The record is a 399-nucleotide part of an RNA from Candidatus Caldarchaeum subterraneum, which matches "Archaeal large subunit ribosomal RNA" in Rfam. The match comes from Rfam's covariance-model search (2451 bits).
RNA sequence: GGUAGUAACAGCGGAGCGGGGUGAGAAUCCCCGCCGCCGAAGGGGCAAGGGUCUCCCGGCAACGCGUCGUCGGCCGGGAGUAAGCCGGUCCUAAGCCCGACCUUAACCGGGUAGGGCGAAAGGGAAACCGGUUAAUAUUCCGGUGCCUCCGGAGUACGUGCGGCGACGCAAGGCCGGUGUCUGACGCUUCGGGGUAGGCUGAGCGGGGCCGUAGCCCUGUCUAAACGCAUAAGCCUGGGGAGUGGCGUAAAGCCGAGAACCAGGUGAAAGCGUGAACGGCCGCCCGUAUGGGUGGUUCAGCUGAUCCCUGGAGCCCAUGAAAAAGACACCGGCAAGGAUCUCCGGAGACCGUGCCAAGAACCGACACCGGUGCCCCUGGGUGAGAAGCCCAAGGCGUCU
Numbered sequence: 001g002g003u004a005g006u007a008a009c010a011g012c013g014g015a016g017c018g019g020g021g022u023g024a025g026a027a028u029c030c031c032c033g034c035c036g037c038c039g040a041a042g043g044g045g046c047a048a049g050g051g052u053c054u055c056c057c058g059g060c061a062a063c064g065c066g067u068c069g070u071c072g073g074c075c076g077g078g079a080g081u082a083a084g085c086c087g088g089u090c091c092u093a094a095g096c097c098c099g100a101c102c103u104u105a106a107c108c109g110g111g112u113a114g115g116g117c118g119a120a121a122g123g124g125a126a127a128c129c130g131g132u133u134a135a136u137a138u139u140c141c142g143g144u145g146c147c148u149c150c151g152g153a154g155u156a157c158g159u160g161c162g163g164c165g166a167c168g169c170a171a172g173g174c175c176g177g178u179g180u181c182u183g184a185c186g187c188u189u190c191g192g193g194g195u196a197g198g199c200u201g202a203g204c205g206g207g208g209c210c211g212u213a214g215c216c217c218u219g220u221c222u223a224a225a226c227g228c229a230u231a232a233g234c235c236u237g238g239g240g241a242g243u244g245g246c247g248u249a250a251a252g253c254c255g256a257g258a259a260c261c262a263g264g265u266g267a268a269a270g271c272g273u274g275a276a277c278g279g280c281c282g283c284c285c286g287u288a289u290g291g292g293u294g295g296u297u298c299a300g301c302u303g304a305u306c307c308c309u310g311g312a313g314c315c316c317a318u319g320a321a322a323a324a325g326a327c328a329c330c331g332g333c334a335a336g337g338a339u340c341u342c343c344g345g346a347g348a349c350c351g352u353g354c355c356a357a358g359a360a361c362c363g364a365c366a367c368c369g370g371u372g373c374c375c376c377u378g379g380g381u382g383a384g385a386a387g388c389c390c391a392a393g394g395c396g397u398c399u
Stems, first nucleotide, its partner, number of pairs: 016034006035396004043375004049355002054079006063072002086351003090123002095117004100112001102110002127144005147347008180326003186314009197302005203220005225273004234264005244254003285290001361370002377391004
Rfam links the family to the GO terms structural constituent of ribosome and ribosome.
The family has 91 seed sequences and 2,955 matches in Rfam 15.1.
NCBI's taxonomy places the organism under Archaea, Nitrososphaerota, Candidatus Caldarchaeales, Candidatus Caldarchaeaceae, Candidatus Caldarchaeum.